About this RNA
tRNA: an 82-nucleotide RNA from Lacinutrix sp. 5H-3-7-4. By type it is a transfer RNA.
[Rfam]
RNA sequence: GCUCAAAUGGCGGAAUUGGUAGACGCGUUGGAUUCAAAAUCCAAUUUCUUCGGGAGUGUGGGUUCGAUUCCCACUUUGAGUA
Numbered sequence: 001g002c003u004c005a006a007a008u009g010g011c012g013g014a015a016u017u018g019g020u021a022g023a024c025g026c027g028u029u030g031g032a033u034u035c036a037a038a039a040u041c042c043a044a045u046u047u048c049u050u051c052g053g054g055a056g057u058g059u060g061g062g063u064u065c066g067a068u069u070c071c072c073a074c075u076u077u078g079a080g081u082a
Stems, first nucleotide, its partner, number of pairs: 001081007010026003028044005058074005
Transfer RNA (tRNA) molecules are approximately 80 nucleotides in length. Their secondary structure includes four short double-helical elements and three loops (D, anti-codon, and T loops). Further hydrogen bonds mediate the characteristic L-shaped molecular structure. tRNAs have two regions of fundamental functional importance: the anti-codon, which is responsible for specific mRNA codon recognition, and the 3' end, to which the tRNAs corresponding amino acid is attached (by aminoacyl-tRNA synthetases). tRNAs cope with the degeneracy of the genetic code in two manners: having more than one tRNA (with a specific anti-codon) for a particular amino acid; and 'wobble' base-pairing, i.e. permitting non-standard base-pairing at the 3rd anti-codon position. Pairs were carried over by alignment from the consensus structure, which is taken from published work.